Shown here is an 81-nucleotide sequence from Cyprinodon variegatus, a member of the family "mir-194 microRNA precursor family". A search with the family's covariance model found it, with a score of 80 bits. Pairs were carried over by alignment from the consensus structure, which was predicted with RNAalifold.
[Rfam]
RNA sequence: UGGUUGUUGCUGGAUGUAACAGCAACUCCAUGUGGAAGCUGAGCUUAUUCCAGUGGAGGUGCUGUUACCUGCAGAGACUAA
Numbered sequence: 001u002g003g004u005u006g007u008u009g010c011u012g013g014a015u016g017u018a019a020c021a022g023c024a025a026c027u028c029c030a031u032g033u034g035g036a037a038g039c040u041g042a043g044c045u046u047a048u049u050c051c052a053g054u055g056g057a058g059g060u061g062c063u064g065u066u067a068c069c070u071g072c073a074g075a076g077a078c079u080a081a
Base pairs, nucleotide, nucleotide: 010074011073012072016068017067018066019065020064021063022062023061026058027057028056029055030054031053033052034051035050